[Rfam]
RNA: Small nucleolar RNA SNORA1
RNA sequence: AGCCUCGUUCUCCAUGAGAACGGGCACUGCUGGUUGUGGUGUCUAGAAAUUCUUACUGUGGCUAAACUGAGACACAGCAAGUGCUACCUCCCAGUAAAUGUACUGCAAUGGUGAUGAUGAGACCUGUAAUUUUA
Numbered sequence: 001a002g003c004c005u006c007g008u009u010c011u012c013c014a015u016g017a018g019a020a021c022g023g024g025c026a027c028u029g030c031u032g033g034u035u036g037u038g039g040u041g042u043c044u045a046g047a048a049a050u051u052c053u054u055a056c057u058g059u060g061g062c063u064a065a066a067c068u069g070a071g072a073c074a075c076a077g078c079a080a081g082u083g084c085u086a087c088c089u090c091c092c093a094g095u096a097a098a099u100g101u102a103c104u105g106c107a108a109u110g111g112u113g114a115u116g117a118u119g120a121g122a123c124c125u126g127u128a129a130u131u132u133u134a
Stems, first nucleotide, its partner, number of pairs: 002062003006058002022044006074127004088113001089111002